[Rfam]
RNA sequence: AACUUUGUGGCAAGGUACACUAUGACAGCUGUCCUAUACAGGCCUUUACUAUGGGAGGUGAUGGCCAAUCAUGGUGUCUACGUGAUU
Numbered sequence: 001a002a003c004u005u006u007g008u009g010g011c012a013a014g015g016u017a018c019a020c021u022a023u024g025a026c027a028g029c030u031g032u033c034c035u036a037u038a039c040a041g042g043c044c045u046u047u048a049c050u051a052u053g054g055g056a057g058g059u060g061a062u063g064g065c066c067a068a069u070c071a072u073g074g075u076g077u078c079u080a081c082g083u084g085a086u087u
Stems, first nucleotide, its partner, number of pairs: 001087002004084001006082001010078001012077001019075007029063001030061001033058003039053002041050002
The record is an 87-nucleotide RNA sequence from Erinaceus europaeus, which matches "Small nucleolar RNA SNORD86" in Rfam. Rfam classes the family as a C/D-box small nucleolar RNA. The match comes from Rfam's covariance-model search (36 bits). The organism belongs to Erinaceus, within Eukaryota. Rfam's curators write: U86 belongs to the C/D family of snoRNAs. It is the human orthologue of Xenopus laevis U86 and has no identified RNA target. Pairs were carried over by alignment from the consensus structure, which was predicted with RNAalifold.